A member of the RNA family "Small nucleolar RNA Z107/R87" from Castanea mollissima, 107 nucleotides long. Its family is annotated with RNA processing and nucleolus in the Gene Ontology. Pairs were carried over by alignment from the consensus structure, which was predicted with RNAfold. The literature on the family includes a 2001 paper in J Mol Biol by Barneche et al., "Identification of 66 box C/D snoRNAs in Arabidopsis thaliana: extensive gene duplications generated multiple isoforms predicting new ribosomal RNA 2'-O-methylation sites".
[Rfam]
RNA sequence: GAUCAUAAUGAUGUCCACAUGAAAUUCAACCCCAACAGACUAGAAAGCAGGCUCCUCUACAAUUUAGAGAAAUUUGCGUGUCGACAACCCCAAUGACCUGAGCGAUC
Numbered sequence: 001g002a003u004c005a006u007a008a009u010g011a012u013g014u015c016c017a018c019a020u021g022a023a024a025u026u027c028a029a030c031c032c033c034a035a036c037a038g039a040c041u042a043g044a045a046a047g048c049a050g051g052c053u054c055c056u057c058u059a060c061a062a063u064u065u066a067g068a069g070a071a072a073u074u075u076g077c078g079u080g081u082c083g084a085c086a087a088c089c090c091c092a093a094u095g096a097c098c099u100g101a102g103c104g105a106u107c
Stems, first nucleotide, its partner, number of pairs: 001107004006102001